[Rfam]
RNA sequence: GGUAGUAGCAAAUAUUCAAGUGAGAUCCUUGAAGACUGAAGUGGAGAAGGGUUCCACGUGAACAGCAGUUGAAUGUGGGUCAGUCGGCCCUAAGAUACUGGUAAUGCCAUGUGUUAUCGAGAGAUGGAGUUCAAAUCCGUCUCGUUUAUCGAAAGGGAAACGGGUUAAUAUUCCCGUACCUGGACACGGAGAUAAGCGCUCAUGCGAGUGUUUAGCGCGGUAACGCAAACGAACUCGGUAACGUUGAAUAGAGCCCGAGCUAGAGUCUCUUUUUCUAGUUAAGGAACGAAUUCCCUGGAAUCGGUUCAGCCGGAGAUAGGGAUGUUGUUUCCGUAAAGCGCCACGGUCCUGUGGUGUCUCGUGCGCUCUAUUCGGCCCUUGAAAAACCGAGGGAGGCUAUUUGAAUUUCGUGCCAGGCCGUACCGAUAUCCGCAGCAGGUCUCCAAGGUGAACAGCCUCUAGUCGA
Number, nucleotide and partner (000 for none) at each position: 001g000002g000003u000004a000005g000006u000007a000008g000009c000010a000011a000012a000013u000014a000015u033016u032017c031018a030019a029020g028021u000022g000023a000024g000025a000026u000027c000028c020029u019030u018031g017032a016033a015034g464035a463036c462037u461038g000039a000040a000041g000042u000043g444044g443045a442046g441047a000048a000049g424050g423051g000052u000053u000054c078055c077056a076057c075058g074059u073060g000061a000062a000063c071064a070065g000066c000067a000068g000069u000070u064071g063072a000073a059074u058075g057076u056077g055078g054079g000080u000081c000082a000083g000084u000085c420086g419087g418088c000089c156090c155091u000092a000093a000094g150095a149096u111097a110098c000099u000100g108101g107102u106103a000104a000105u000106g102107c101108c100109a000110u097111g096112u000113g000114u000115u000116a000117u000118c000119g143120a142121g141122a000123g000124a000125u000126g000127g000128a000129g000130u000131u000132c000133a000134a000135a000136u000137c000138c000139g000140u000141c121142u120143c119144g000145u000146u000147u000148a000149u095150c094151g000152a000153a000154a000155g090156g089157g000158a000159a000160a177161c176162g175163g174164g173165u000166u000167a000168a000169u000170a000171u000172u000173c164174c163175c162176g161177u160178a000179c000180c416181u415182g414183g413184a000185c000186a000187c000188g000189g000190a000191g000192a000193u000194a000195a000196g000197c000198g000199c000200u000201c000202a000203u412204g411205c410206g409207a408208g406209u405210g000211u000212u000213u000214a000215g000216c000217g226218c225219g224220g000221u000222a000223a000224c219225g218226c217227a000228a000229a000230c000231g000232a000233a000234c391235u390236c389237g388238g387239u386240a000241a000242c000243g376244u375245u374246g373247a000248a371249u370250a369251g368252a367253g366254c365255c000256c361257g360258a359259g279260c278261u277262a276263g275264a274265g000266u000267c000268u000269c000270u000271u000272u000273u000274u264275c263276u262277a261278g260279u259280u000281a000282a000283g332284g331285a330286a329287c000288g000289a000290a000291u000292u322293c321294c320295c319296u318297g317298g000299a000300a000301u313302c312303g311304g310305u000306u000307c000308a000309g000310c304311c303312g302313g301314a000315g000316a000317u297318a296319g295320g294321g293322a292323u000324g000325u000326u000327g000328u000329u286330u285331c284332c283333g000334u000335a000336a000337a000338g000339c356340g355341c354342c353343a352344c351345g350346g000347u000348c000349c000350u345351g344352u343353g342354g341355u340356g339357u000358c000359u258360c257361g256362u000363g000364c000365g254366c253367u252368c251369u250370a249371u248372u000373c246374g245375g244376c243377c000378c000379u000380u000381g000382a000383a000384a000385a000386a239387c238388c237389g236390a235391g234392g000393g000394a000395g000396g000397c000398u000399a000400u000401u000402u000403g000404a000405a209406u208407u000408u207409c206410g205411u204412g203413c183414c182415a181416g180417g000418c087419c086420g085421u000422a000423c050424c049425g000426a000427u000428a000429u000430c439431c438432g000433c000434a000435g000436c000437a000438g431439g430440u000441c046442u045443c044444c043445a000446a458447g457448g456449u455450g000451a000452a000453c000454a000455g449456c448457c447458u446459c000460u000461a037462g036463u035464c034465g000466a000

Shown here is a 466-nucleotide part of an RNA from Parascaris univalens, a member of the family "Eukaryotic large subunit ribosomal RNA".
A search with the family's covariance model found it, with a score of 3104 bits.